[Rfam]
RNA sequence: GCGGAGGGCCGGAUGGCCGCGGGGUGGCAACACCGCGAGGAAAGUCCGGACUCCCUGAAGCAACGGUGCCGGGUAACACCCGGGCGGAGCGAUCCGACGGAAAGCGCCACAGAAAUGAGACUACCCCGGUCCGCCGGGGAAAAGGUGAAACGGUGGGGUAAGAGCCCACCGCGCCGCUGGCAACAGGGGCGGCACGGCAAGCCCCACCGGGAGCAAUGCCGAAUAGGGAUCGCAUCACGGGGCGCUUCACCCCCGCGAUCCGGGUUGGCAGCCCGAGCGUAUCGGCAACGGUGCGCCUAGAGGAAUGGUCAUCCAGAGGGGGCGACCCCUUGGACAGAAUCCGGCUUACAGGCCCUCCGCGCAG
Numbered sequence: 001g002c003g004g005a006g007g008g009c010c011g012g013a014u015g016g017c018c019g020c021g022g023g024g025u026g027g028c029a030a031c032a033c034c035g036c037g038a039g040g041a042a043a044g045u046c047c048g049g050a051c052u053c054c055c056u057g058a059a060g061c062a063a064c065g066g067u068g069c070c071g072g073g074u075a076a077c078a079c080c081c082g083g084g085c086g087g088a089g090c091g092a093u094c095c096g097a098c099g100g101a102a103a104g105c106g107c108c109a110c111a112g113a114a115a116u117g118a119g120a121c122u123a124c125c126c127c128g129g130u131c132c133g134c135c136g137g138g139g140a141a142a143a144g145g146u147g148a149a150a151c152g153g154u155g156g157g158g159u160a161a162g163a164g165c166c167c168a169c170c171g172c173g174c175c176g177c178u179g180g181c182a183a184c185a186g187g188g189g190c191g192g193c194a195c196g197g198c199a200a201g202c203c204c205c206a207c208c209g210g211g212a213g214c215a216a217u218g219c220c221g222a223a224u225a226g227g228g229a230u231c232g233c234a235u236c237a238c239g240g241g242g243c244g245c246u247u248c249a250c251c252c253c254c255g256c257g258a259u260c261c262g263g264g265u266u267g268g269c270a271g272c273c274c275g276a277g278c279g280u281a282u283c284g285g286c287a288a289c290g291g292u293g294c295g296c297c298u299a300g301a302g303g304a305a306u307g308g309u310c311a312u313c314c315a316g317a318g319g320g321g322g323c324g325a326c327c328c329c330u331u332g333g334a335c336a337g338a339a340u341c342c343g344g345c346u347u348a349c350a351g352g353c354c355c356u357c358c359g360c361g362c363a364g
Stems, first nucleotide, its partner, number of pairs: 001360010011349001012313007020037002023034004042347003046344005051213004059247002064209005069083005084098001085096004099204002104202002106198003121144002124139006152170006171193001172191004177186003217270004227261006239253004277296008
Shown here is a 364-nucleotide sequence from Roseicyclus elongatus, a member of the family "Bacterial RNase P class A". The match comes from Rfam's covariance-model search (291 bits). Rfam links the family to the GO terms tRNA processing, ribonuclease P activity and dimeric ribonuclease P complex. Rfam classes the family as a ribozyme. NCBI's taxonomy places the organism under Bacteria, Pseudomonadati, Rhodobacterales, Roseicyclus, Roseicyclus elongatus.